ZMP/ZTP riboswitch aptamer (pfl RNA motif): an 84-nucleotide RNA sequence from Leifsonia sp. AK011. The organism belongs to Leifsonia, within Bacteria. The family's consensus secondary structure is taken from published work.
RNA sequence: UCAGGGGGUCGCAACUGGCGUUGAGAUGGGCAACCAUCGGGGAGCGAUCGCUUUCGAAGUGGGCCGUACGCCUGGGCCUGCGGA
Dot-bracket structure: ..(((.((((((..(([[[[[....((((....))))..))..)))))).))).......(((((..]]]]]..))))).....